Source information:
Rfam assigns this 107-nucleotide RNA to the family "Bacteroidales small SRP". Its Rfam clan is "SRP clan". Rfam classes the family as a non-coding RNA gene. Its family is annotated with SRP-dependent cotranslational protein targeting to membrane, signal sequence recognition and signal recognition particle, plasma membrane targeting in the Gene Ontology. A search with the family's covariance model found it, with a score of 99 bits.

RNA sequence: UUGCGCUGGGUAAGCCUUAUACGACCAGCUCCCUCUUACUCCUCCAGGGUGGAAACACAGCAAAGGUACGAGGUUGUAGCGGUGCGAUAUGAGUAACUUACCCACUU
Numbered sequence: 001u002u003g004c005g006c007u008g009g010g011u012a013a014g015c016c017u018u019a020u021a022c023g024a025c026c027a028g029c030u031c032c033c034u035c036u037u038a039c040u041c042c043u044c045c046a047g048g049g050u051g052g053a054a055a056c057a058c059a060g061c062a063a064a065g066g067u068a069c070g071a072g073g074u075u076g077u078a079g080c081g082g083u084g085c086g087a088u089a090u091g092a093g094u095a096a097c098u099u100a101c102c103c104a105c106u107u
Stems, first nucleotide, its partner, number of pairs: 008103007017092005022086002024083002